[Rfam]
RNA sequence: CCAUAUUUCGAGUUUUGUGCGUGAAUCUAAUAAAACUGUAAUCCACACACCAAAAAUGUAGAUUUGUUUCAUGUUAGAUUCACGCACAAACUCGUAAUCUGUCU
Numbered sequence: 001c002c003a004u005a006u007u008u009c010g011a012g013u014u015u016u017g018u019g020c021g022u023g024a025a026u027c028u029a030a031u032a033a034a035a036c037u038g039u040a041a042u043c044c045a046c047a048c049a050c051c052a053a054a055a056a057u058g059u060a061g062a063u064u065u066g067u068u069u070c071a072u073g074u075u076a077g078a079u080u081c082a083c084g085c086a087c088a089a090a091c092u093c094g095u096a097a098u099c100u101g102u103c104u
Stems, first nucleotide, its partner, number of pairs: 002101002005098003011092003015089013029075003045063001
RNA: MIR403 microRNA precursor family
Organism: Gossypium gossypioides